[Rfam]
RNA: Eukaryotic large subunit ribosomal RNA, nucleotides 432 to 727
RNA sequence: GGAUUAAGAGAGAAAACAAGUAAAGAGGGGAAUUUUUAAUUUUUUUUGUUAUAAUUCUCUUCUUUAUUAAAAGAAACAUCAGUGAUUAAUUUAAUUUCAAUAAAGCAAUCCCCUGAAAUUCAAAAUUUCUUUUAAUUUUGUUUUCACUUUCUCCCCGCACUAAUGUGGGGAAAACUGGCUUUAUUUCUUCAAUUAUUUUUUUUGCUGAGGAAUUUUAAAAUUAUUUGAAUUUUUCUUCUUAUAAUUUAAGUUGUUUCUAUACAGUACUUUCUUAACCCACUCGUCUUGAAACACGG
Numbered sequence: 001g002g003a004u005u006a007a008g009a010g011a012g013a014a015a016a017c018a019a020g021u022a023a024a025g026a027g028g029g030g031a032a033u034u035u036u037u038a039a040u041u042u043u044u045u046u047u048g049u050u051a052u053a054a055u056u057c058u059c060u061u062c063u064u065u066a067u068u069a070a071a072a073g074a075a076a077c078a079u080c081a082g083u084g085a086u087u088a089a090u091u092u093a094a095u096u097u098c099a100a101u102a103a104a105g106c107a108a109u110c111c112c113c114u115g116a117a118a119u120u121c122a123a124a125a126u127u128u129c130u131u132u133u134a135a136u137u138u139u140g141u142u143u144u145c146a147c148u149u150u151c152u153c154c155c156c157g158c159a160c161u162a163a164u165g166u167g168g169g170g171a172a173a174a175c176u177g178g179c180u181u182u183a184u185u186u187c188u189u190c191a192a193u194u195a196u197u198u199u200u201u202u203u204g205c206u207g208a209g210g211a212a213u214u215u216u217a218a219a220a221u222u223a224u225u226u227g228a229a230u231u232u233u234u235c236u237u238c239u240u241a242u243a244a245u246u247u248a249a250g251u252u253g254u255u256u257c258u259a260u261a262c263a264g265u266a267c268u269u270u271c272u273u274a275a276c277c278c279a280c281u282c283g284u285c286u287u288g289a290a291a292c293a294c295g296g
Stems, first nucleotide, its partner, number of pairs: 001278002004275009020067007072258007281296004